[Rfam]
RNA sequence: UUAGAGGAUUUAAAGACUCCAACUUGUAUACUCGGAGGAUUUGAAAACUUCAACUUGCAUACUUGAAAAAUUUAAAGACUUCAACU
Numbered sequence: 001u002u003a004g005a006g007g008a009u010u011u012a013a014a015g016a017c018u019c020c021a022a023c024u025u026g027u028a029u030a031c032u033c034g035g036a037g038g039a040u041u042u043g044a045a046a047a048c049u050u051c052a053a054c055u056u057g058c059a060u061a062c063u064u065g066a067a068a069a070a071u072u073u074a075a076a077g078a079c080u081u082c083a084a085c086u
Stems, first nucleotide, its partner, number of pairs: 001084002004081003009076006018067001020065002025059004032053001034051004
RNA: MIR8024 microRNA precursor family
Organism: Solanum tuberosum